[Rfam]
RNA sequence: GAAGCUCUUCUGUUUUGCGAAGUCCCAAGUUUCACUUGGGAUACGCUCCGAACCGAGUUUCGGAACAUAGCAGCAGAGGGGUUUU
Numbered sequence: 001g002a003a004g005c006u007c008u009u010c011u012g013u014u015u016u017g018c019g020a021a022g023u024c025c026c027a028a029g030u031u032u033c034a035c036u037u038g039g040g041a042u043a044c045g046c047u048c049c050g051a052a053c054c055g056a057g058u059u060u061c062g063g064a065a066c067a068u069a070g071c072a073g074c075a076g077a078g079g080g081g082u083u084u085u
Stems, first nucleotide, its partner, number of pairs: 001085012014073001016072003022042009

DUF3800-VIII RNA: an 85-nucleotide sequence. Rfam's curators write: Bacteroidetes, Cyanobacteria, Firmicutes, Planctomycetes (1 example), Proteobacteria, Tenericutes (1 example). Rfam classes the family as a small RNA.